Rfam assigns this 176-nucleotide RNA from Tatumella ptyseos to the family "SraG RNA". NCBI's taxonomy places the organism under Bacteria, Pseudomonadota, Gammaproteobacteria, Tatumella, Tatumella ptyseos. The match comes from Rfam's covariance-model search (100 bits). Gene Ontology terms of the family: sRNA-mediated gene silencing and mRNA binding. Pairs were carried over by alignment from the consensus structure, which was predicted with PFOLD. Rfam's curators write: This RNA was discovered in E. coli during a large scale screen. Evidence was found for specific cleavage of this RNA. Rfam classes the family as a small RNA. The literature on the family includes a 2016 paper in RNA by Fontaine et al., "The small RNA SraG participates in PNPase homeostasis".
[Rfam]
RNA sequence: CUUUUGUGCAUCCUCGCGACUAAUGACAAAGCUCACGUCCCGAUACUCAGGGCGGAUAAGGUUUCUCAUUAGCCGCGCGAAUCGUGCAAAUAAAGAUCACUCACAGUAACAAUACAUGAGUUUUAACAGAAAUACUGCCAGUCACCCAAAAAAAGGGGCCGUAAAGGCCCCCUUUU
Numbered sequence: 001c002u003u004u005u006g007u008g009c010a011u012c013c014u015c016g017c018g019a020c021u022a023a024u025g026a027c028a029a030a031g032c033u034c035a036c037g038u039c040c041c042g043a044u045a046c047u048c049a050g051g052g053c054g055g056a057u058a059a060g061g062u063u064u065c066u067c068a069u070u071a072g073c074c075g076c077g078c079g080a081a082u083c084g085u086g087c088a089a090a091u092a093a094a095g096a097u098c099a100c101u102c103a104c105a106g107u108a109a110c111a112a113u114a115c116a117u118g119a120g121u122u123u124u125a126a127c128a129g130a131a132a133u134a135c136u137g138c139c140a141g142u143c144a145c146c147c148a149a150a151a152a153a154a155g156g157g158g159c160c161g162u163a164a165a166g167g168c169c170c171c172c173u174u175u176u
Stems, first nucleotide, its partner, number of pairs: 001095004006091002008087003015079004020072007101130002155171006